Rfam assigns this 82-nucleotide RNA from Pisciglobus halotolerans to the family "L17 ribosomal protein downstream element".
Pairs were carried over by alignment from the consensus structure, which is taken from published work.
By type it is a cis-regulatory element.
[Rfam]
RNA sequence: AGAGUGUUACGAUGAUGGAAAACAAUUAAAAAAUUUCCGAGUCUAGCUCUAAACUUCUUCUGGGAAGAUUGCUCUUUCCAGA
Number, nucleotide and partner (000 for none) at each position: 001a000002g049003a048004g047005u046006g000007u000008u000009a000010c000011g043012a042013u041014g000015a000016u000017g038018g037019a036020a035021a034022a000023c000024a000025a000026u000027u000028a000029a000030a000031a000032a000033a000034u021035u020036u019037c018038c017039g000040a000041g013042u012043c011044u000045a000046g005047c004048u003049c002050u000051a000052a000053a000054c000055u000056u000057c000058u000059u082060c081061u080062g079063g078064g077065a076066a075067g074068a000069u000070u000071g000072c000073u000074c067075u066076u065077u064078c063079c062080a061081g060082a059